[Rfam]
RNA: mir-544 microRNA precursor family
Organism: Sus scrofa
RNA sequence: AUAACCUAGGGGUCUUGUUAAAAAUGCAGAUUCUGAUUCAGUAGAUCUGAUAUGGGACUGAGAUUCUGCAUGUCUAAUAAGUUCCCAGGUGAUGCUGA
Numbered sequence: 001a002u003a004a005c006c007u008a009g010g011g012g013u014c015u016u017g018u019u020a021a022a023a024a025u026g027c028a029g030a031u032u033c034u035g036a037u038u039c040a041g042u043a044g045a046u047c048u049g050a051u052a053u054g055g056g057a058c059u060g061a062g063a064u065u066c067u068g069c070a071u072g073u074c075u076a077a078u079a080a081g082u083u084c085c086c087a088g089g090u091g092a093u094g095c096u097g098a
Stems, first nucleotide, its partner, number of pairs: 004090002009085003014081007022073001024071001026069005032063003
Dot-bracket structure: ...((...(((..(((((((.(.(.(((((.(((..........................))).))))).).).))))))).)))...))........